[Rfam]
RNA: NoRC associated RNA, pRNA
Organism: Homo sapiens
RNA sequence: CCAUGGUGGCCUUUUUUUGGGAAAGAUGUCCAGGUCACGCGUUUCUGCUCAGGUGGUGUGGUCACUGACUCGACACCCCUCCACCAGGCA
Numbered sequence: 001c002c003a004u005g006g007u008g009g010c011c012u013u014u015u016u017u018u019g020g021g022a023a024a025g026a027u028g029u030c031c032a033g034g035u036c037a038c039g040c041g042u043u044u045c046u047g048c049u050c051a052g053g054u055g056g057u058g059u060g061g062u063c064a065c066u067g068a069c070u071c072g073a074c075a076c077c078c079c080u081c082c083a084c085c086a087g088g089c090a
Stems, first nucleotide, its partner, number of pairs: 004087001006085001008084001019079003028069003034062007
Dot-bracket structure: ...(.(.(..........(((......(((...(((((((...............)))))))....))).......)))....)).)...